[Rfam]
Rfam assigns this 89-nucleotide RNA from Paeniglutamicibacter gangotriensis to the family "Group II catalytic intron D1-D4-1". The organism belongs to Paeniglutamicibacter gangotriensis, within Bacteria. Group II introns are found in rRNA, tRNA and mRNA of organelles in fungi, plants and protists, and also in mRNA in bacteria.
RNA sequence: CGGCUCGGUCUUAAGGGUCGUGACUGACGGGGCAGAAGUCAGCAGACGCCAUAGUACCCACCGGAAUCUUGUUGGUGGUGGGGAAGGGC
Numbered sequence: 001c002g003g004c005u006c007g008g009u010c011u012u013a014a015g016g017g018u019c020g021u022g023a024c025u026g027a028c029g030g031g032g033c034a035g036a037a038g039u040c041a042g043c044a045g046a047c048g049c050c051a052u053a054g055u056a057c058c059c060a061c062c063g064g065a066a067u068c069u070u071g072u073u074g075g076u077g078g079u080g081g082g083g084a085a086g087g088g089c
Stems, first nucleotide, its partner, number of pairs: 001026002004022001006020006038047003048089003057082006